[Rfam]
RNA sequence: AUCUUAUCAAGAGUAGGUGGAGGGACUAGCCCAAUGAAGCCCGGCAACCGACCGUUUUUACGGCACGGUGCUAAUUCUUGCAGCAACGCUGGGAGAUAAGAG
Numbered sequence: 001a002u003c004u005u006a007u008c009a010a011g012a013g014u015a016g017g018u019g020g021a022g023g024g025a026c027u028a029g030c031c032c033a034a035u036g037a038a039g040c041c042c043g044g045c046a047a048c049c050g051a052c053c054g055u056u057u058u059u060a061c062g063g064c065a066c067g068g069u070g071c072u073a074a075u076u077c078u079u080g081c082a083g084c085a086a087c088g089c090u091g092g093g094a095g096a097u098a099a100g101a102g
Stems, first nucleotide, its partner, number of pairs: 002101007013042001016041003022032003026080001028078002043072004048068002050064001052062001076094001081091004

Record summary:
The record is a 102-nucleotide RNA sequence from Mangrovibacillus cuniculi, which matches "SAM riboswitch aptamer (S box leader)" in Rfam. Taxonomically the source falls in Mangrovibacillus (Bacteria, Bacillota, Bacilli, Bacillaceae).